[Rfam]
RNA: MIR2118 microRNA precursor family
RNA sequence: GCAUGGAAGAGGAAGAAAAGAGGGUCUAAGAGCAGUGGGCAUGGGAACAUGGAGGAAGGCCUAUGAGGUGGAAAACUCAUUCUGUGUCUUCCUGAUGCCUCCCAUGCCUAUCGUUCUUAGGUGCUCCUUCCUCUUGCUUUUGGCU
Numbered sequence: 001g002c003a004u005g006g007a008a009g010a011g012g013a014a015g016a017a018a019a020g021a022g023g024g025u026c027u028a029a030g031a032g033c034a035g036u037g038g039g040c041a042u043g044g045g046a047a048c049a050u051g052g053a054g055g056a057a058g059g060c061c062u063a064u065g066a067g068g069u070g071g072a073a074a075a076c077u078c079a080u081u082c083u084g085u086g087u088c089u090u091c092c093u094g095a096u097g098c099c100u101c102c103c104a105u106g107c108c109u110a111u112c113g114u115u116c117u118u119a120g121g122u123g124c125u126c127c128u129u130c131c132u133c134u135u136g137c138u139u140u141u142g143g144c145u
Stems, first nucleotide, its partner, number of pairs: 010135004015130003020126003025121009036110011048097003052093001054092007